[Rfam]
Overview:
The family of this 110-nucleotide RNA from Kocuria palustris is "SAM (S-adenosyl methionine) riboswitch aptamer". A search with the family's covariance model found it, with a score of 50 bits. Gene Ontology terms of the family: S-adenosylmethionine metabolic process and regulation of gene expression. NCBI's taxonomy places the organism under Bacteria, Bacillati, Actinomycetota, Actinomycetes, Kocuria palustris. The base pairs follow the family's consensus structure, which is taken from published work.
RNA sequence: CUUCACGAGACACAGCUGCCAAGCUCCGACUUGGCUGUGCACCAACCCCAUGUUCAAGGGUGGUUCGGAUGACGAAGCGGCCUGCACCUGACGCAGCGCACGAACAAGCU
Numbered sequence: 001c002u003u004c005a006c007g008a009g010a011c012a013c014a015g016c017u018g019c020c021a022a023g024c025u026c027c028g029a030c031u032u033g034g035c036u037g038u039g040c041a042c043c044a045a046c047c048c049c050a051u052g053u054u055c056a057a058g059g060g061u062g063g064u065u066c067g068g069a070u071g072a073c074g075a076a077g078c079g080g081c082c083u084g085c086a087c088c089u090g091a092c093g094c095a096g097c098g099c100a101c102g103a104a105c106a107a108g109c110u
Stems, first nucleotide, its partner, number of pairs: 001077004009040001011039006022031002041064003046060003080105001083102002